[Rfam]
RNA: L31-Actinobacteria ribosomal protein leader
RNA sequence: UCGGUUCCGGUUCACGCCGCAGCCUCCCGGUACGGGAAGGGCGACCCGGACC
Numbered sequence: 001u002c003g004g005u006u007c008c009g010g011u012u013c014a015c016g017c018c019g020c021a022g023c024c025u026c027c028c029g030g031u032a033c034g035g036g037a038a039g040g041g042c043g044a045c046c047c048g049g050a051c052c
Base pairs, nucleotide, nucleotide: 003052004051005050007049008048009047010046015043016042017041018040023039